[Rfam]
RNA sequence: UACUAAGGGCUGACGGCGGAUGCCUUGGCACCAGGAGGCGAUGAAGGACGUGGAAAGCUGCGAUAAGCUUCGGUGAGCUGCUAACAGGCUAUGACCCGGAGAUUUCCGAAUGGGGAAACCCGGCAGAGUUCAUACUCUGUCAUCAUACAGUGAAUUCAUAGCUGUAUGAGGCGAACGGGGGGAAGUGAAACAUCUCAGUACCUCCAGGAAAAGAAAUCAAUUGAGAUUCCGUAAGUAGCGGCGAGCGAACGCGGAGUAGCCCAAACCCAUAGGCUUGCCUAUGGGGGUUGUAGGACCCCAACAUGGGAUUGAUGAGGGAUAGCGGAACGGUAUGGAAAGGCCGACCAUAGAUGGUGAUAGUCCAGUACGCGAAAUUCUGAUUCACCCUAGGGUGUUCCUGAGUACCACGAGACACGUGAAACCUUGUGGGAAUCUGGGAGGACCAUCUUCCAAGGCUAAAUACUACCUGGUGACCGAUAGUGAACUAGUACCGUGAGGGAAAGGUGAAAAGAACCCCGGGAGGGGAGUGAAAUAGAAACUGAAACCGUCAGCUUACAAG
Number, nucleotide and partner (000 for none) at each position: 001u000002a000003c000004u000005a000006a000007g554008g553009g552010c551011u550012g549013a548014c547015g546016g545017c000018g000019g000020a000021u000022g539023c504024c503025u000026u000027g475028g474029c472030a471031c470032c469033a468034g467035g466036a464037g463038g172039c171040g000041a000042u000043g000044a000045a000046g107047g106048a105049c062050g061051u060052g000053g000054a000055a000056a000057g000058c000059u000060g051061c050062g049063a000064u000065a000066a000067g000068c101069u100070u099071c098072g097073g096074u000075g000076a000077g089078c088079u087080g000081c000082u000083a000084a000085c000086a000087g079088g078089c077090u000091a000092u000093g000094a000095c000096c073097c072098g071099g070100a069101g068102a000103u000104u000105u048106c047107c046108g000109a000110a000111u000112g121113g120114g119115g000116a000117a000118a000119c114120c113121c112122g141123g140124c139125a138126g137127a136128g135129u000130u000131c000132a000133u000134a000135c128136u127137c126138u125139g124140u123141c122142a000143u169144c168145a167146u166147a165148c164149a163150g162151u161152g000153a000154a000155u000156u000157c000158a000159u000160a000161g151162c150163u149164g148165u147166a146167u145168g144169a143170g000171g039172c038173g000174a000175a000176c207177g205178g204179g203180g202181g201182g000183a000184a000185g000186u000187g194188a193189a000190a000191c000192a000193u188194c187195u000196c000197a000198g000199u000200a000201c181202c180203u179204c178205c177206a000207g176208g000209a000210a000211a000212a000213g000214a000215a000216a000217u224218c223219a000220a000221u000222u000223g218224a217225g000226a000227u460228u255229c254230c253231g252232u251233a000234a000235g000236u000237a000238g246239c245240g000241g000242c000243g000244a000245g239246c238247g000248a000249a000250c000251g232252c231253g230254g229255a228256g000257u000258a457259g456260c455261c454262c000263a000264a000265a000266c285267c284268c283269a282270u281271a280272g279273g000274c000275u000276u000277g000278c000279c272280u271281a270282u269283g268284g267285g266286g000287g000288u000289u000290g000291u000292a399293g398294g397295a000296c000297c392298c391299c390300a000301a000302c000303a000304u000305g000306g000307g000308a000309u000310u384311g383312a382313u000314g000315a000316g378317g377318g376319a375320u374321a000322g370323c369324g368325g000326a000327a000328c343329g342330g341331u340332a000333u000334g000335g000336a000337a000338a000339g000340g331341c330342c329343g328344a000345c000346c350347a000348u000349a000350g346351a000352u364353g363354g362355u000356g000357a000358u000359a000360g000361u000362c354363c353364a352365g000366u000367a000368c324369g323370c322371g000372a000373a000374a320375u319376u318377c317378u316379g000380a000381u000382u312383c311384a310385c000386c000387c000388u000389a000390g299391g298392g297393u000394g000395u000396u000397c294398c293399u292400g000401a000402g000403u000404a000405c429406c428407a427408c426409g425410a424411g423412a000413c000414a000415c000416g000417u000418g000419a000420a000421a000422c000423c411424u410425u409426g408427u407428g406429g405430g000431a000432a000433u000434c000435u000436g451437g450438g449439a448440g447441g000442a000443c000444c000445a000446u000447c440448u439449u438450c437451c436452a000453a000454g261455g260456c259457u258458a000459a000460a227461u000462a000463c037464u036465a000466c035467c034468u033469g032470g031471u030472g029473a000474c028475c027476g000477a000478u000479a000480g000481u000482g000483a000484a000485c000486u000487a000488g000489u000490a000491c498492c497493g000494u000495g000496a000497g492498g491499g000500a000501a000502a000503g024504g023505u000506g000507a000508a000509a000510a000511g000512a000513a000514c525515c524516c523517c522518g000519g000520g000521a000522g517523g516524g515525g514526a000527g000528u000529g000530a000531a000532a000533u000534a000535g000536a000537a000538a000539c022540u000541g000542a000543a000544a000545c016546c015547g014548u013549c012550a011551g010552c009553u008554u007555a000556c000557a000558a000559g000
Bacterial large subunit ribosomal RNA: a 559-nucleotide part of an RNA from Desulfolithobacter dissulfuricans. The family's consensus secondary structure is taken from published work. The organism belongs to Desulfolithobacter, within Bacteria.